[Rfam]
RNA sequence: UUCUUAUCACGAGAAGGCUGAGGGACUGGCCCUAUGAAGCCCGGCAACCUGCUUGUGUCUUUUUAAAGACGGCGAGCAAGGUGCUAAUUCCUGCAGAAUGGAUCAUUCAUUCUGAAAGAUAAGAC
Numbered sequence: 001u002u003c004u005u006a007u008c009a010c011g012a013g014a015a016g017g018c019u020g021a022g023g024g025a026c027u028g029g030c031c032c033u034a035u036g037a038a039g040c041c042c043g044g045c046a047a048c049c050u051g052c053u054u055g056u057g058u059c060u061u062u063u064u065a066a067a068g069a070c071g072g073c074g075a076g077c078a079a080g081g082u083g084c085u086a087a088u089u090c091c092u093g094c095a096g097a098a099u100g101g102a103u104c105a106u107u108c109a110u111u112c113u114g115a116a117a118g119a120u121a122a123g124a125c
Base pairs, nucleotide, nucleotide: 002124003123004122005121006120007119008118013042016041017040018039022032023031024030026093028091029090043085044084045083046082048081049080050078051077052076053075054074055073056072089117094114095113096112097111098110099109100108101107
Dot-bracket structure: .(((((((....(..(((...(((.[.[[)))......))))((((.(((((((((...............))))))).))))))...(]].]((((((((.....))))))))..)))))))).

Rfam assigns this 125-nucleotide RNA sequence from Aneurinibacillus danicus to the family "SAM riboswitch aptamer (S box leader)". A search with the family's covariance model found it, with a score of 82 bits.